Rfam assigns this 85-nucleotide sequence from Escherichia coli to the family "ArsR-gov region gene B". It scores 92 bits against the family's covariance model. Pairs were carried over by alignment from the consensus structure, which was predicted with RNAfold. It is annotated as an antisense RNA. On this family, see Weel-Sneve et al., PLoS Genet 2013: "Single transmembrane peptide DinQ modulates membrane-dependent activities". Gene Ontology terms of the family: antisense RNA metabolic process and gene silencing by RNA.
RNA sequence: UUAGAUGAUGGCAUUCUCACUCCAGCCAGAGCCACCAACUCAGGGCUGAAGAGUAAAAAAACCGACGCGAAGUCGGUUUUUUUAC
Dot-bracket structure: ....................(.(((((.(((.......)))..))))).)....((((((.(((((.....)))))))))))...